[Rfam]
RNA sequence: GAGUGGGGCCCGGUGGCGAGGCUAACCCCACAGGGGGAGCCGUAGCGAAAGCGACAAGCCCGCAGGAAACGAGGGGCGGCGUAGGAUUUGCGCGGAGUCACCGGGCCACGACCCGGAACCAGGUGAUCUAGGCGUGGGCAGAUCGAAGCGUAACGAAAGUUACGUGGAGGAUCGUUAGCGGUACUGAUAUGCAAAUCGUUCGCGUGACCCGUGUCUAGGGGUGAAAGUCCAAUCGAACUUGGAAACAGCUGGUU
Numbered sequence: 001g002a003g004u005g006g007g008g009c010c011c012g013g014u015g016g017c018g019a020g021g022c023u024a025a026c027c028c029c030a031c032a033g034g035g036g037g038a039g040c041c042g043u044a045g046c047g048a049a050a051g052c053g054a055c056a057a058g059c060c061c062g063c064a065g066g067a068a069a070c071g072a073g074g075g076g077c078g079g080c081g082u083a084g085g086a087u088u089u090g091c092g093c094g095g096a097g098u099c100a101c102c103g104g105g106c107c108a109c110g111a112c113c114c115g116g117a118a119c120c121a122g123g124u125g126a127u128c129u130a131g132g133c134g135u136g137g138g139c140a141g142a143u144c145g146a147a148g149c150g151u152a153a154c155g156a157a158a159g160u161u162a163c164g165u166g167g168a169g170g171a172u173c174g175u176u177a178g179c180g181g182u183a184c185u186g187a188u189a190u191g192c193a194a195a196u197c198g199u200u201c202g203c204g205u206g207a208c209c210c211g212u213g214u215c216u217a218g219g220g221g222u223g224a225a226a227g228u229c230c231a232a233u234c235g236a237a238c239u240u241g242g243a244a245a246c247a248g249c250u251g252g253u254u
Base pairs, nucleotide, nucleotide: 005109007107008106009105010104011103012102013101014100015099016098017097020041021040022039023038026035027034028033045052046051058077059076060075061074065070080092081091082090083089112252113251115249119242120241121240122239123238124237128218129217130216131215132214133213134212135211136210137209138208139206141173142172143171144170148165149164150163151162152161153160154159178203179202180201181200183199184198186197187196220230221229

A member of the RNA family "Archaeal large subunit ribosomal RNA" from Methanocella conradii, 254 nucleotides of a longer RNA.